[Rfam]
RNA sequence: GGGCUGAUAAUGAUAAUAUUAUUAUCUUAGCAGAUUUCAGUUAGAUUUUUUUAUCUAUGAUCUGAUUGUUACACACACUGAAGCCU
Numbered sequence: 001g002g003g004c005u006g007a008u009a010a011u012g013a014u015a016a017u018a019u020u021a022u023u024a025u026c027u028u029a030g031c032a033g034a035u036u037u038c039a040g041u042u043a044g045a046u047u048u049u050u051u052u053a054u055c056u057a058u059g060a061u062c063u064g065a066u067u068g069u070u071a072c073a074c075a076c077a078c079u080g081a082a083g084c085c086u
Base pairs, nucleotide, nucleotide: 001086002085003084004083005082
Small nucleolar RNA R11/Z151: an 86-nucleotide sequence from Macleaya cordata.
The family's consensus secondary structure was predicted with PFOLD.
The organism belongs to Macleaya, within Eukaryota.
Rfam links the family to the GO terms RNA processing and nucleolus.
Rfam 15.1 lists 802 matches to the family in 218 species.
For this family Rfam cites "Identification of 66 box C/D snoRNAs in Arabidopsis thaliana: extensive gene duplications generated multiple isoforms predicting new ribosomal RNA 2'-O-methylation sites" (Barneche et al., J Mol Biol, 2001).